Overview: Rfam assigns this 75-nucleotide RNA from Actinocorallia herbida to the family "ASpks TB sRNA".
RNA sequence: CUUGAUCGAGCCCAGCAGGGCGGGCCGAUCCGCGGCGCGGUCCCGGCCGUAGGUCGCCAGCAGCGCCUGCGCCUC
Numbered sequence: 001c002u003u004g005a006u007c008g009a010g011c012c013c014a015g016c017a018g019g020g021c022g023g024g025c026c027g028a029u030c031c032g033c034g035g036c037g038c039g040g041u042c043c044c045g046g047c048c049g050u051a052g053g054u055c056g057c058c059a060g061c062a063g064c065g066c067c068u069g070c071g072c073c074u075c
Base pairs, nucleotide, nucleotide: 015025016024031071032070033069038065039064043060045058047056049054

Source information:
It is annotated as an antisense RNA.